This 210-nucleotide sequence from Rhodobacteraceae bacterium CCMM004 belongs to the Rfam family "permuted transfer-messenger RNA". Lineage of the source: Bacteria > Pseudomonadati > Alphaproteobacteria > Rhodobacterales > Paracoccaceae. It scores 156 bits against the family's covariance model. The family's RNA type in Rfam is non-coding RNA gene.
[Rfam]
RNA sequence: GGUGAUAAACGCGCAGGUAAUAAGCGGAUCGGACCCGGGGGCGGUACCCGGCGGCUCCACCAAAUCUCCUUCGUUGGGGGACCAUGGGGCCGAAACAGGAUCGACGGACGUCUAAAGCUGUAGCUUUCACUCGGUGAGGUACCACCGUUAUCGGUCCGACAAAGCAUAAUUGCCAACGACAAUCGUGCUCCGGUUGCUCUGGCCGCUUAA
Number, nucleotide and partner (000 for none) at each position: 001g131002g130003u129004g128005a127006u000007a000008a000009a000010c000011g000012c000013g121014c120015a119016g118017g000018u000019a000020a000021u000022a000023a000024g000025c110026g109027g000028a000029u107030c106031g105032g000033a000034c000035c051036c050037g049038g048039g047040g000041g000042c000043g000044g000045u000046a000047c039048c038049c037050g036051g035052c092053g091054g090055c089056u088057c087058c086059a000060c000061c000062a000063a000064a000065u000066c000067u000068c000069c000070u000071u000072c000073g000074u000075u000076g000077g000078g000079g000080g000081a000082c000083c000084a000085u000086g058087g057088g056089g055090c054091c053092g052093a000094a000095a000096c000097a000098g000099g000100a000101u000102c000103g000104a000105c031106g030107g029108a000109c026110g025111u000112c000113u000114a000115a000116a000117g000118c016119u015120g014121u013122a000123g000124c000125u000126u000127u005128c004129a003130c002131u001132c147133g146134g145135u144136g000137a000138g000139g000140u000141a000142c000143c000144a135145c134146c133147g132148u000149u000150a000151u000152c000153g000154g000155u000156c000157c000158g000159a000160c000161a000162a000163a000164g000165c000166a000167u000168a000169a000170u000171u000172g000173c000174c000175a000176a000177c000178g000179a000180c000181a000182a000183u000184c000185g000186u000187g000188c000189u000190c000191c000192g000193g000194u000195u000196g000197c000198u000199c000200u000201g000202g000203c000204c000205g000206c000207u000208u000209a000210a000